[Rfam]
RNA: MIR394 microRNA precursor family
RNA sequence: GUUGCAGAGCCAAUUUGGCAUUCUGUCCACCUCCACUAAUACUUGUUACCUAGCUUGGAAAUGGAGGUGGCCAGUAUGUCAAACAGGCUCUGUAAA
Numbered sequence: 001g002u003u004g005c006a007g008a009g010c011c012a013a014u015u016u017g018g019c020a021u022u023c024u025g026u027c028c029a030c031c032u033c034c035a036c037u038a039a040u041a042c043u044u045g046u047u048a049c050c051u052a053g054c055u056u057g058g059a060a061a062u063g064g065a066g067g068u069g070g071c072c073a074g075u076a077u078g079u080c081a082a083a084c085a086g087g088c089u090c091u092g093u094a095a096a
Stems, first nucleotide, its partner, number of pairs: 011086001015082006024073002027070008